Small nucleolar RNA SNORA14: a 127-nucleotide sequence from Molossus molossus. By type it is an H/ACA-box small nucleolar RNA. Rfam 15.1 lists 848 matches to the family in 633 species. Rfam describes the family as follows. ACA14 is a member of the H/ACA class of snoRNA that guide the sites of modification of uridines to pseudouridines. Gene Ontology terms of the family: nucleolus and RNA processing.
[Rfam]
RNA sequence: CUGCAUUCUCCAACCCUCCCGCGGCUCCCCCGUGCCCCCGGGACACGAGCGAAUGCUACAGAACCGCGGGCGAGUCCAAAGGCCGCCGUCGGCCCUGGCGCGGCCUCAUUUCGCGCCCGCGACACGU
Dot-bracket structure: ..((((.(((......(((((.(((........)))..)))))...)))...))))...((...((((((.........((((((.((..(....)..)))))))).........))))))...).)
Numbered sequence: 001c002u003g004c005a006u007u008c009u010c011c012a013a014c015c016c017u018c019c020c021g022c023g024g025c026u027c028c029c030c031c032g033u034g035c036c037c038c039c040g041g042g043a044c045a046c047g048a049g050c051g052a053a054u055g056c057u058a059c060a061g062a063a064c065c066g067c068g069g070g071c072g073a074g075u076c077c078a079a080a081g082g083c084c085g086c087c088g089u090c091g092g093c094c095c096u097g098g099c100g101c102g103g104c105c106u107c108a109u110u111u112c113g114c115g116c117c118c119g120c121g122a123c124a125c126g127u
Stems, first nucleotide, its partner, number of pairs: 003056004008049003017043005023036003060127001061125001065121006080106006087100002091096001